The record is a 93-nucleotide RNA sequence from Paenibacillus sp. J45TS6, which matches "c-di-GMP-I riboswitch aptamer" in Rfam.
On this family, see Weinberg et al., Nucleic Acids Res 2007: "Identification of 22 candidate structured RNAs in bacteria using the CMfinder comparative genomics pipeline".
RNA sequence: AUACACUGAGGGCAAAUUUACCGAAAGGUAAAGACGCAAAGCCAUAGGGUCUAAAGUGAGUCUUAGGACUUACGAUGAUAGCCGGUUGCCGAC
Numbered sequence: 001a002u003a004c005a006c007u008g009a010g011g012g013c014a015a016a017u018u019u020a021c022c023g024a025a026a027g028g029u030a031a032a033g034a035c036g037c038a039a040a041g042c043c044a045u046a047g048g049g050u051c052u053a054a055a056g057u058g059a060g061u062c063u064u065a066g067g068a069c070u071u072a073c074g075a076u077g078a079u080a081g082c083c084g085g086u087u088g089c090c091g092a093c
Base pairs, nucleotide, nucleotide: 012037013036017032018031019030020029021028022027040087041086042085043084047083048082049079050078051077056073057072058071059070060069061068062067
NCBI's taxonomy places the organism under Bacteria, Bacillati, Bacillota, Caryophanales, Paenibacillus.